[Rfam]
RNA: Small Cajal body specific RNA 16
Organism: Erinaceus europaeus
RNA sequence: AUGGUCUGGAGAAAGGCUUCUGUGUUGUUGAACCUUCCCAGUGUGGGUGCACCUUGUACCAGGCAGCCCCACCCUGACCUAGAGCAAAUUCCCCAGGGGAAAAUUCUCCCAGGGAUUUGAAUUUUCAGUAACUUGUAUGAGCAUUCUAGGAGUAGUUUGAUGAUCAUGUACGAUACUGCAAACAGAA
Dot-bracket structure: ..((((.((.....((((((((.((.(.((.(((...........))).))).....)))))).))))....)).))))...........(((..((((......))))..))).......(((.(((((.(.....(((.((((..((......)).)))).))).....).))))).))).....